[Rfam]
RNA: Alphaproteobacteria transfer-messenger RNA
Organism: Pontivivens nitratireducens
RNA sequence: GCUCUUGAUAAUCGGGUUGCCACGCUCUACUUCUAACAGUGCCUCGCUUGCGGGGAUAUGGCGAUAAACGCGCAUGUAAUAAGCGGUUCGGACCCGGGGGCGGUACCCGGCGACUCCACCAAUCACCCUGUCAUUUGCAGGGCAGACGGGGUCGAAACAGUAUCGACGGACGUCUAAAGAUGUAGCCUUCGCUCGGUGAGAUACCACCGUUAUCGGUUCGCAAAGUAUAGUUGCAAAUGACAACCAUGCUCCGGUCGCAGUCGCCGCGUAAGCGGUGCCUAAGAUCGAAACUUAAGUCCUUGCGCCUAGCCGCGUAAGGCGGGGUUCGCAGGCACCUGGCAACAGAAGCCUGCACU
Numbered sequence: 001g002c003u004c005u006u007g008a009u010a011a012u013c014g015g016g017u018u019g020c021c022a023c024g025c026u027c028u029a030c031u032u033c034u035a036a037c038a039g040u041g042c043c044u045c046g047c048u049u050g051c052g053g054g055g056a057u058a059u060g061g062c063g064a065u066a067a068a069c070g071c072g073c074a075u076g077u078a079a080u081a082a083g084c085g086g087u088u089c090g091g092a093c094c095c096g097g098g099g100g101c102g103g104u105a106c107c108c109g110g111c112g113a114c115u116c117c118a119c120c121a122a123u124c125a126c127c128c129u130g131u132c133a134u135u136u137g138c139a140g141g142g143c144a145g146a147c148g149g150g151g152u153c154g155a156a157a158c159a160g161u162a163u164c165g166a167c168g169g170a171c172g173u174c175u176a177a178a179g180a181u182g183u184a185g186c187c188u189u190c191g192c193u194c195g196g197u198g199a200g201a202u203a204c205c206a207c208c209g210u211u212a213u214c215g216g217u218u219c220g221c222a223a224a225g226u227a228u229a230g231u232u233g234c235a236a237a238u239g240a241c242a243a244c245c246a247u248g249c250u251c252c253g254g255u256c257g258c259a260g261u262c263g264c265c266g267c268g269u270a271a272g273c274g275g276u277g278c279c280u281a282a283g284a285u286c287g288a289a290a291c292u293u294a295a296g297u298c299c300u301u302g303c304g305c306c307u308a309g310c311c312g313c314g315u316a317a318g319g320c321g322g323g324g325u326u327c328g329c330a331g332g333c334a335c336c337u338g339g340c341a342a343c344a345g346a347a348g349c350c351u352g353c354a355c356u
Base pairs, nucleotide, nucleotide: 042055043054044053045052060193061192062191063190064189070186071185072183073182074181075180084172085171088169089168090167094110095109096108097107098106111154112153113152114151115150116149117148194209195208196207197206200219201218203217204216205215322337323336324335325334328353329352330351331350332349333348